This 405-nucleotide RNA belongs to the Rfam family "Vertebrate telomerase RNA". From the family's description: Telomerase is a ribonucleoprotein reverse transcriptase that synthesises telomeric DNA. Telomerase RNAs differ greatly in sequence and structure between vertebrates, ciliates and yeasts, but they share a 5' pseudoknot structure close to the template sequence. Vertebrate telomerase RNAs have a 3' H/ACA snoRNA-like domain. Its family is annotated with telomere maintenance via telomerase, telomerase activity and telomerase catalytic core complex in the Gene Ontology. A reference for the family is Chen et al. (2000), "Secondary structure of vertebrate telomerase RNA", Cell. It is annotated as a non-coding RNA gene.

RNA sequence: ACAGUGGGAAUAGGAGGGAGUCUAUAUUUCUAACCCUAAUAUACCCGGUUCAGGGCUCUUAUGUGGCGCUCGUUGUUUUGCCGGUUGCCUUUCAGCGGGCGAAAGAGCUCAGAGAAGCGAGGACCAAAAAACGGCAGCCGCGGGCCCUCCUGUUCCCACCAUCCCAGCUUUUCCACACUGCGCCUGGGUUCUCACUCAAGUGUUCGGCAGCUUCCACUUACGAGGCCGCGGUCUACCGCUGUCACUGGUAGUCGCGAAGAGUUCGUCUCUGUCAGCCUUGGGAGCCGCGGACGGAGUAUGAGGUCCAGUAAUGAGAGCAGGGAAGAGUAAAGCGAGCCGCGCUACUUGUCCUAUCUGCCGCUCCUAAGCUGUGGGGCGUGUAGGGUACACAAGGCUCCGACAUUC
Number, nucleotide and partner (000 for none) at each position: 001a000002c000003a000004g159005u158006g157007g156008g155009a154010a153011u152012a151013g150014g149015a148016g147017g000018g145019a000020g000021u000022c000023u000024a000025u000026a000027u000028u000029u000030c000031u000032a000033a000034c000035c000036c000037u000038a000039a000040u000041a000042u000043a000044c000045c000046c000047g000048g000049u000050u000051c000052a000053g000054g000055g108056c107057u106058c105059u104060u000061a000062u000063g000064u000065g000066g000067c101068g100069c099070u098071c097072g096073u095074u094075g093076u000077u000078u000079u000080g000081c000082c000083g000084g138085u137086u136087g135088c134089c133090u131091u130092u129093c075094a074095g073096c072097g071098g070099g069100c068101g067102a000103a000104a059105g058106a057107g056108c055109u000110c000111a000112g000113a000114g000115a000116a000117g000118c000119g000120a000121g000122g000123a000124c000125c000126a000127a000128a000129a092130a091131a090132c000133g089134g088135c087136a086137g085138c084139c000140g000141c000142g000143g000144g000145c018146c000147c016148u015149c014150c013151u012152g011153u010154u009155c008156c007157c006158a005159c004160c000161a000162u000163c322164c321165c320166a000167g318168c317169u316170u000171u000172u000173c000174c000175a000176c000177a000178c000179u000180g000181c000182g000183c000184c308185u307186g306187g305188g304189u303190u302191c000192u000193c000194a000195c000196u000197c000198a000199a000200g000201u000202g000203u000204u291205c290206g000207g288208c287209a000210g285211c284212u283213u282214c281215c280216a000217c000218u000219u000220a000221c000222g000223a000224g000225g000226c000227c256228g255229c254230g253231g252232u000233c251234u250235a249236c248237c247238g246239c000240u000241g000242u000243c000244a000245c000246u238247g237248g236249u235250a234251g233252u231253c230254g229255c228256g227257a000258a270259g269260a268261g267262u000263u000264c000265g000266u000267c261268u260269c259270u258271g000272u000273c000274a000275g000276c000277c000278u000279u000280g215281g214282g213283a212284g211285c210286c000287g208288c207289g000290g205291a204292c000293g000294g000295a000296g000297u000298a000299u000300g000301a000302g190303g189304u188305c187306c186307a185308g184309u000310a000311a000312u000313g000314a000315g000316a169317g168318c167319a000320g165321g164322g163323a000324a000325g000326a000327g000328u000329a000330a000331a000332g000333c000334g397335a396336g395337c394338c000339g000340c000341g000342c000343u389344a000345c000346u000347u000348g000349u000350c000351c000352u000353a000354u000355c383356u382357g381358c380359c000360g000361c376362u375363c374364c373365u000366a000367a000368g000369c000370u000371g000372u000373g364374g363375g362376g361377c000378g000379u000380g358381u357382a356383g355384g000385g000386u000387a000388c000389a343390c000391a000392a000393g000394g337395c336396u335397c334398c000399g000400a000401c000402a000403u000404u000405c000